[Rfam]
RNA sequence: CCCGCCACUGUGCAAGUCUAUUAAGUGUCUUUGUACAAUCCAGUGGAGGCUCAUAGUGACCCAGCUCUAGGAAGCAGGGCGGCCCCAAUCUAAUGGGCAACUCUGUGCCGAAAGGCCUGGAACAAAC
Number, nucleotide and partner (000 for none) at each position: 001c000002c000003c000004g000005c046006c045007a044008c043009u042010g041011u000012g000013c000014a000015a000016g000017u000018c033019u000020a031021u000022u027023a000024a000025g000026u000027g022028u000029c000030u000031u020032u000033g018034u000035a000036c000037a000038a000039u000040c000041c010042a009043g008044u007045g006046g005047a000048g000049g000050c000051u000052c000053a000054u000055a000056g000057u000058g000059a000060c000061c120062c119063a118064g117065c115066u114067c000068u112069a000070g109071g108072a000073a000074g000075c105076a104077g103078g102079g101080c000081g000082g000083c097084c096085c095086c000087a000088a000089u000090c000091u000092a000093a000094u000095g085096g084097g083098c000099a000100a000101c079102u078103c077104u076105g075106u000107g000108c071109c070110g000111a000112a068113a000114g066115g065116c000117c064118u063119g062120g061121a000122a000123c000124a000125a000126a000127c000
RNA: Small nucleolar RNA SNORA65
Organism: Anabarilius grahami